[Rfam]
RNA sequence: CUUACAGAGUUUAUUGGCAUUCUGUCCACCUCCUAGUUCCUACAUCAAACGGGGAAGGAAGGGAAAAAAAGAAAAAAAAAACGAUAGAGAAAGACCUGUUUUUCUACGGGGGUAAAAGGAAAACGAGAAAUUCUCCAUGUUUGCGCUUGCUUUGAAGGGAGGUGGGCAUACUGCCAAGUGAGCUCUGUGGG
Numbered sequence: 001c002u003u004a005c006a007g008a009g010u011u012u013a014u015u016g017g018c019a020u021u022c023u024g025u026c027c028a029c030c031u032c033c034u035a036g037u038u039c040c041u042a043c044a045u046c047a048a049a050c051g052g053g054g055a056a057g058g059a060a061g062g063g064a065a066a067a068a069a070a071g072a073a074a075a076a077a078a079a080a081a082c083g084a085u086a087g088a089g090a091a092a093g094a095c096c097u098g099u100u101u102u103u104c105u106a107c108g109g110g111g112g113u114a115a116a117a118g119g120a121a122a123a124c125g126a127g128a129a130a131u132u133c134u135c136c137a138u139g140u141u142u143g144c145g146c147u148u149g150c151u152u153u154g155a156a157g158g159g160a161g162g163u164g165g166g167c168a169u170a171c172u173g174c175c176a177a178g179u180g181a182g183c184u185c186u187g188u189g190g191g
Stems, first nucleotide, its partner, number of pairs: 011181001014177006023168011
Shown here is a 191-nucleotide RNA from Rhodamnia argentea, a member of the family "MIR394 microRNA precursor family".
The family's consensus secondary structure was predicted with WAR.
Lineage of the source: Eukaryota > Viridiplantae > Embryophyta > Euphyllophyta > Rhodamnia.
On this family, see Jones-Rhoades and Bartel, Mol Cell 2004: "Computational identification of plant microRNAs and their targets, including a stress-induced miRNA".